[Rfam]
RNA sequence: CCCUUAUUUAGAGCGGUGGAGAUACAUAGGAUCUAUGAAGCCCGGCAACCCCAUUAGGAAUGUGGAAGGUGCCAACCUGAGCGAGUGAAUCGAACAAUAAGAG
Numbered sequence: 001c002c003c004u005u006a007u008u009u010a011g012a013g014c015g016g017u018g019g020a021g022a023u024a025c026a027u028a029g030g031a032u033c034u035a036u037g038a039a040g041c042c043c044g045g046c047a048a049c050c051c052c053a054u055u056a057g058g059a060a061u062g063u064g065g066a067a068g069g070u071g072c073c074a075a076c077c078u079g080a081g082c083g084a085g086u087g088a089a090u091c092g093a094a095c096a097a098u099a100a101g102a103g
Base pairs, nucleotide, nucleotide: 001103003101004100005099006098007097008096013043015042016041017040021033022032023031027081030078044073045072046071047070049069050068051065052064053063054062082092083091084090
The record is a 103-nucleotide RNA from [Clostridium] fimetarium, which matches "SAM riboswitch aptamer (S box leader)" in Rfam. The match comes from Rfam's covariance-model search (71 bits). Taxonomically the source falls in Lachnoclostridium (Bacteria, Bacillati, Clostridia, Lachnospirales). Rfam's curators write: The SAM riboswitch is found upstream of a number of genes which code for proteins involved in methionine or cysteine biosynthesis in Gram-positive bacteria. Gene Ontology term of the family: regulation of gene expression.